[Rfam]
RNA sequence: GAGUGAAGGGUUCAAGUGGUGCCCGCCUUGAACCCAUGCGGCCUGGUGCUCAACCUGACCCGCUCGUAAGGGCAUUUC
Numbered sequence: 001g002a003g004u005g006a007a008g009g010g011u012u013c014a015a016g017u018g019g020u021g022c023c024c025g026c027c028u029u030g031a032a033c034c035c036a037u038g039c040g041g042c043c044u045g046g047u048g049c050u051c052a053a054c055c056u057g058a059c060c061c062g063c064u065c066g067u068a069a070g071g072g073c074a075u076u077u078c
Base pairs, nucleotide, nucleotide: 008035009034010033011032012031013030014029015028016027020074021073022072023071024070038063039062040061041060043057046055
RNA: Coronavirus frameshifting stimulation element
Organism: Deltacoronavirus marecae